[Rfam]
RNA: ALIL pseudoknot
RNA sequence: GGCUUUUUUCGCGGCGGAGCUCGACCGCCCCUCAAGUCGCUGAUCGCCUACGUCGACGAGCACAAGGACCAGUUCGGGGUCGAGCCGAUCUGCACCGUCCUCACCGAGGCCGGUGCCAAGAUCGCCCCG
Number, nucleotide and partner (000 for none) at each position: 001g000002g000003c000004u000005u000006u000007u000008u000009u000010c000011g000012c000013g029014g028015c027016g026017g025018a000019g000020c000021u000022c000023g000024a000025c017026c016027g015028c014029c013030c000031c000032u000033c000034a000035a000036g000037u000038c000039g000040c000041u000042g000043a000044u000045c000046g000047c000048c000049u000050a000051c000052g000053u000054c000055g000056a000057c000058g000059a000060g000061c000062a000063c000064a000065a000066g000067g000068a000069c000070c000071a000072g000073u000074u000075c129076g128077g127078g126079g125080u000081c000082g000083a000084g000085c000086c124087g123088a000089u121090c120091u119092g116093c115094a114095c113096c112097g111098u000099c000100c000101u000102c000103a000104c000105c000106g000107a000108g000109g000110c000111c097112g096113g095114u094115g093116c092117c000118a000119a091120g090121a089122u000123c087124g086125c079126c078127c077128c076129g075